[Rfam]
RNA: bZIP non canonical Hac1/Xbp1 intron
Organism: Onychomys leucogaster
RNA sequence: GUGGCCGGGUCUGCUGAGUCCGCAGCACUCAGACUACGUGCACCUCUGCAGCAGGUGCAGGCCCAGCUGUCAC
Numbered sequence: 001g002u003g004g005c006c007g008g009g010u011c012u013g014c015u016g017a018g019u020c021c022g023c024a025g026c027a028c029u030c031a032g033a034c035u036a037c038g039u040g041c042a043c044c045u046c047u048g049c050a051g052c053a054g055g056u057g058c059a060g061g062c063c064c065a066g067c068u069g070u071c072a073c
Stems, first nucleotide, its partner, number of pairs: 001073005007064005014032006041057005